[Rfam]
RNA sequence: CCUGUGGAGAGUGAUACAAACGUUAGUAGGGAGUACGUGCCGAGAACGCAUUCUGAGAAGCAGGAA
Dot-bracket structure: (((((...(((((.......(((.....((.........))....))))))))......)))))..
A member of the RNA family "RAGATH-18 RNA" from Candidatus Kurthia intestinigallinarum, 66 nucleotides long. The source organism's lineage runs through Bacteria, Bacillota, Caryophanales, Caryophanaceae and Kurthia. From the family's description: Actinobacteria, Firmicutes, Fusobacteria, Thermotogae (1 example). By type it is a small RNA.